[Rfam]
RNA sequence: CUGCUGCGGUGAGUCGAGGCCUCGGCCCGAUCGACCCUGACGUACUUCCCCAACGCCAGGUGCGCUCGGGCGGGGACCCCGUCUCAUCGCAGGCCCACA
Numbered sequence: 001c002u003g004c005u006g007c008g009g010u011g012a013g014u015c016g017a018g019g020c021c022u023c024g025g026c027c028c029g030a031u032c033g034a035c036c037c038u039g040a041c042g043u044a045c046u047u048c049c050c051c052a053a054c055g056c057c058a059g060g061u062g063c064g065c066u067c068g069g070g071c072g073g074g075g076a077c078c079c080c081g082u083c084u085c086a087u088c089g090c091a092g093g094c095c096c097a098c099a
Base pairs, nucleotide, nucleotide: 010086011085012084013083015081016080018078019077021075022074023073025071026070027069028068029067030066032064033063036060037059038058039057041055042054043053
Rfam assigns this 99-nucleotide RNA from Gordonia sihwensis to the family "mraW RNA". A search with the family's covariance model found it, with a score of 67 bits. Taxonomically the source falls in Gordonia sihwensis (Bacteria, Actinomycetota, Actinomycetes, Gordoniaceae). It is annotated as a cis-regulatory element.